[Rfam]
Shown here is a 179-nucleotide RNA sequence from Histidinibacterium aquaticum, a member of the family "Ruegeria cis52 sRNA". Its family is annotated with regulation of gene expression in the Gene Ontology.
RNA sequence: UCCGCAGGGCGUGCUUCAGCACGAUGUUGGGGAAGCUCACACCCUUGAGCCGGGCGGUCCGGAUGUACUGGGCGGUCAUGACCUCGGUCAUCGAGGCCCGGGUCAUCCGGGCGAUAUAGCCCAUGCCGUAGAGCGCGAUGGUCAUCACCGGCAGGGUGAAGUUCUCGAAAGUCGCGUUC
Dot-bracket structure: ....((..((((.(((..(((......((((......(.(.(...(((.((((((.((((((.....)))))).)......(((((.....)))))))))).)))...).).)......))))))).).)).))))..))......(.((((.(((......))).....))))..)..
Numbered sequence: 001u002c003c004g005c006a007g008g009g010c011g012u013g014c015u016u017c018a019g020c021a022c023g024a025u026g027u028u029g030g031g032g033a034a035g036c037u038c039a040c041a042c043c044c045u046u047g048a049g050c051c052g053g054g055c056g057g058u059c060c061g062g063a064u065g066u067a068c069u070g071g072g073c074g075g076u077c078a079u080g081a082c083c084u085c086g087g088u089c090a091u092c093g094a095g096g097c098c099c100g101g102g103u104c105a106u107c108c109g110g111g112c113g114a115u116a117u118a119g120c121c122c123a124u125g126c127c128g129u130a131g132a133g134c135g136c137g138a139u140g141g142u143c144a145u146c147a148c149c150g151g152c153a154g155g156g157u158g159a160a161g162u163u164c165u166c167g168a169a170a171g172u173c174g175c176g177u178u179c
Stems, first nucleotide, its partner, number of pairs: 005140002009136004014131002016128001019126003028123004038113001040111001042109001046105003050101005055075001057073006082096005147177001149174004154165003

Lineage of the source: Bacteria > Pseudomonadati > Pseudomonadota > Alphaproteobacteria > Histidinibacterium.